RNA sequence: CAGGUGCAACAGGUAGUUGCUGGUGACAUUUGUGUCACGAGAGGAAAGUCCGGGCUGCAGGUGAGACAGGACUCCAUCUAACGGAUGGCCAGAGUAAUCUGAGGGCAAGUGCAACAGAAAGUAAACCGCCAGGCUUAGCCUGGUAAGGGUGAAAGGGUGGGGUAAGAGCCCACCGGUGAGCAUGGUAACACGCUCAGCCAGGUAAACCCUGUCCGCAGCAAGAAGUAUAUGGUAUAAGUCUCACAAGCCGUUCAGUCGGCACUCAUACUUCGCUUGAGCGUAUGGGCAACUAUACGCCUAGAUAAAUAACUACCCAACGACAAAACCCGGCUUAUCGUUGCACCUGACUA
Numbered sequence: 001c002a003g004g005u006g007c008a009a010c011a012g013g014u015a016g017u018u019g020c021u022g023g024u025g026a027c028a029u030u031u032g033u034g035u036c037a038c039g040a041g042a043g044g045a046a047a048g049u050c051c052g053g054g055c056u057g058c059a060g061g062u063g064a065g066a067c068a069g070g071a072c073u074c075c076a077u078c079u080a081a082c083g084g085a086u087g088g089c090c091a092g093a094g095u096a097a098u099c100u101g102a103g104g105g106c107a108a109g110u111g112c113a114a115c116a117g118a119a120a121g122u123a124a125a126c127c128g129c130c131a132g133g134c135u136u137a138g139c140c141u142g143g144u145a146a147g148g149g150u151g152a153a154a155g156g157g158u159g160g161g162g163u164a165a166g167a168g169c170c171c172a173c174c175g176g177u178g179a180g181c182a183u184g185g186u187a188a189c190a191c192g193c194u195c196a197g198c199c200a201g202g203u204a205a206a207c208c209c210u211g212u213c214c215g216c217a218g219c220a221a222g223a224a225g226u227a228u229a230u231g232g233u234a235u236a237a238g239u240c241u242c243a244c245a246a247g248c249c250g251u252u253c254a255g256u257c258g259g260c261a262c263u264c265a266u267a268c269u270u271c272g273c274u275u276g277a278g279c280g281u282a283u284g285g286g287c288a289a290c291u292a293u294a295c296g297c298c299u300a301g302a303u304a305a306a307u308a309a310c311u312a313c314c315c316a317a318c319g320a321c322a323a324a325a326c327c328c329g330g331c332u333u334a335u336c337g338u339u340g341c342a343c344c345u346g347a348c349u350a
Stems, first nucleotide, its partner, number of pairs: 001346010011335001012314007020041002023038006046333003050330005055218004069214004074088005089103001090101004104209002109207002111203002126148002128144007156174006176198001177196005183190002222271004232262002235259001278297008
Bacterial RNase P class A: a 350-nucleotide RNA from Sulfurovum lithotrophicum. The family's consensus secondary structure is taken from published work.